This 163-nucleotide RNA from Dyella sp. M7H15-1 belongs to the Rfam family "Group II catalytic intron D1-D4-3". Its family is annotated with Group II intron splicing in the Gene Ontology. Pairs were carried over by alignment from the consensus structure.
RNA sequence: UCCUCCGCGAGGGGGCGCCUGAAGGAAGCUGCAGGCAACAUGCGGGUCCGACGAACAGGAAACGGAUAGAGGCGGCGUAGCGGGGUGGGGCAGUCCAAAAGGCCAAAGCCCAAAACUUGCACGGAACUACGAUGCGCUGCCACUGGGCAGCGACGCUGGGGUC
Dot-bracket structure: .(((((....)))))............(.(.(..((......((.(((((.............((......(((.(((((..((((..(((..........)))...))))...............))))).)))....))..)))))..))..))..).).)